[Rfam]
RNA sequence: ACUGAUCAAUGAUGACUCCAUUUUUUAAAUUGGUGACUGCUGGAUGAAACUUGCGGAUAUGGGACUGAGAUCAGCU
Numbered sequence: 001a002c003u004g005a006u007c008a009a010u011g012a013u014g015a016c017u018c019c020a021u022u023u024u025u026u027a028a029a030u031u032g033g034u035g036a037c038u039g040c041u042g043g044a045u046g047a048a049a050c051u052u053g054c055g056g057a058u059a060u061g062g063g064a065c066u067g068a069g070a071u072c073a074g075c076u
Stems, first nucleotide, its partner, number of pairs: 002074004